Background: This 73-nucleotide RNA from Corallococcus coralloides belongs to the Rfam family "SAH (S-adenosyl-L-homocysteine) riboswitch aptamer". The base pairs follow the family's consensus structure, which is taken from published work. It scores 59 bits against the family's covariance model.
RNA sequence: GACUUCGAGGAGCGUUGCGAGGCCUUCCCGGCCCCAGGCUCGAAGCCGACUGACCCAACGGCGCUCACCUGAA
Numbered sequence: 001g002a003c004u005u006c007g008a009g010g011a012g013c014g015u016u017g018c019g020a021g022g023c024c025u026u027c028c029c030g031g032c033c034c035c036a037g038g039c040u041c042g043a044a045g046c047c048g049a050c051u052g053a054c055c056c057a058a059c060g061g062c063g064c065u066c067a068c069c070u071g072a073a
Stems, first nucleotide, its partner, number of pairs: 003045006021033004